[Rfam]
RNA sequence: CACACUGUUUAGCAUCCUCGAGAUGUUUAGGCACCCCUUCCUCUACCGCACUAUCUACUCGAUAGAUCAUGUUGGAGAGAUGAUAAGCGGUUUUUGUUGACGUUUUUUGUCCGCCUUCGCCCUGGGAUCUUGAAAAAGACUUCUAGAGGAAACAUAAAACUAGUCUCAGAG
Numbered sequence: 001c002a003c004a005c006u007g008u009u010u011a012g013c014a015u016c017c018u019c020g021a022g023a024u025g026u027u028u029a030g031g032c033a034c035c036c037c038u039u040c041c042u043c044u045a046c047c048g049c050a051c052u053a054u055c056u057a058c059u060c061g062a063u064a065g066a067u068c069a070u071g072u073u074g075g076a077g078a079g080a081u082g083a084u085a086a087g088c089g090g091u092u093u094u095u096g097u098u099g100a101c102g103u104u105u106u107u108u109g110u111c112c113g114c115c116u117u118c119g120c121c122c123u124g125g126g127a128u129c130u131u132g133a134a135a136a137a138g139a140c141u142u143c144u145a146g147a148g149g150a151a152a153c154a155u156a157a158a159a160c161u162a163g164u165c166u167c168a169g170a171g
Base pairs, nucleotide, nucleotide: 007034008033011027012026013025014024017022039083040082041079042078043077044076046074052071053070054069060065099165100164101163102160103159105158106157107156108154109153110152120149121148122146123145124144125143126142127141